[Rfam]
Shown here is a 141-nucleotide sequence from Micromonospora echinofusca, a member of the family "c-di-AMP riboswitch aptamer (ydaO/yuaA leader)". The organism belongs to Micromonospora, within Bacteria. It scores 84 bits against the family's covariance model. Its family is annotated with regulation of gene expression and cyclic-di-AMP binding in the Gene Ontology.
RNA sequence: CGCACCGACCCGCCCAAUCGUGAACGACGAGCCGGGGACCCAGUGCUUCGUGGGGUGAAUCCGUGGGCCGCAGGCCUGUGGUAGGGCGUUCUUCCCGCCCGAAUCCGUCAGCUAACCCGGUCGGCGGCGUCGGAAGGAGUU
Numbered sequence: 001c002g003c004a005c006c007g008a009c010c011c012g013c014c015c016a017a018u019c020g021u022g023a024a025c026g027a028c029g030a031g032c033c034g035g036g037g038a039c040c041c042a043g044u045g046c047u048u049c050g051u052g053g054g055g056u057g058a059a060u061c062c063g064u065g066g067g068c069c070g071c072a073g074g075c076c077u078g079u080g081g082u083a084g085g086g087c088g089u090u091c092u093u094c095c096c097g098c099c100c101g102a103a104u105c106c107g108u109c110a111g112c113u114a115a116c117c118c119g120g121u122c123g124g125c126g127g128c129g130u131c132g133g134a135a136g137g138a139g140u141u
Stems, first nucleotide, its partner, number of pairs: 011126004018030003031121006041052002053106003061081009084100004